[Rfam]
c-di-GMP-I riboswitch aptamer: an 84-nucleotide RNA sequence from Terrisporobacter othiniensis. The base pairs follow the family's consensus structure, which is taken from published work. NCBI's taxonomy places the organism under Bacteria, Bacillati, Bacillota, Peptostreptococcales, Terrisporobacter. The match comes from Rfam's covariance-model search (78 bits). About the family: GEMM was predicted in a large-scale screen for bacterial structured RNA regulatory elements.
RNA sequence: AAAUUAAAUAGGUAAACCUAGGGAAAUCUAGGGACACAAAGCUAUAGGGACUAAGGUUAUUAACUAUGUCAGCCAGUUGCCAAA
Numbered sequence: 001a002a003a004u005u006a007a008a009u010a011g012g013u014a015a016a017c018c019u020a021g022g023g024a025a026a027u028c029u030a031g032g033g034a035c036a037c038a039a040a041g042c043u044a045u046a047g048g049g050a051c052u053a054a055g056g057u058u059a060u061u062a063a064c065u066a067u068g069u070c071a072g073c074c075a076g077u078u079g080c081c082a083a084a
Base pairs, nucleotide, nucleotide: 012037013036017032018031019030020029021028022027040078041077042076043075047074048073049070050069051068056064057063058062